A member of the RNA family "TPP riboswitch aptamer (THI element)" from Empedobacter falsenii, 93 nucleotides long. Gene Ontology term of the family: thiamine pyrophosphate binding. The source organism's lineage runs through Bacteria, Pseudomonadati, Bacteroidota, Flavobacteriia and Empedobacter. The match comes from Rfam's covariance-model search (75 bits).

[Rfam]
RNA sequence: AUUUGGCUUUAGGGGUAUUCUGAAAAGAAUUGAGAGAGUCCCUUUGAACCUGAUACGGUUAACACCGACGUAGGGAAAAGCAAUAUCUAUGCA
Numbered sequence: 001a002u003u004u005g006g007c008u009u010u011a012g013g014g015g016u017a018u019u020c021u022g023a024a025a026a027g028a029a030u031u032g033a034g035a036g037a038g039u040c041c042c043u044u045u046g047a048a049c050c051u052g053a054u055a056c057g058g059u060u061a062a063c064a065c066c067g068a069c070g071u072a073g074g075g076a077a078a079a080g081c082a083a084u085a086u087c088u089a090u091g092c093a
Stems, first nucleotide, its partner, number of pairs: 006081005011043004016037001017030005049074004056067003